[Rfam]
RNA: c-di-GMP-I-GGC riboswitch aptamer
RNA sequence: CUCGAUAAAGGCAAACCUGAUGAAAGUCAGGGACGCAAAGCUAGAGGGGCUUCCGGACAAGGGAAAUCGUCCGAUGCCAGCCAGUUACCGAAG
Number, nucleotide and partner (000 for none) at each position: 001c093002u000003c090004g089005a000006u000007a000008a000009a000010g000011g036012c035013a000014a000015a000016c031017c030018u029019g028020a027021u026022g000023a000024a000025a000026g021027u020028c019029a018030g017031g016032g000033a000034c080035g012036c011037a000038a000039a086040g085041c084042u083043a000044g000045a000046g082047g081048g078049g077050c076051u000052u000053c000054c000055g000056g000057a000058c000059a000060a000061g000062g000063g000064a000065a000066a000067u000068c000069g000070u000071c000072c000073g000074a000075u000076g050077c049078c048079a000080g034081c047082c046083a042084g041085u040086u039087a000088c000089c004090g003091a000092a000093g001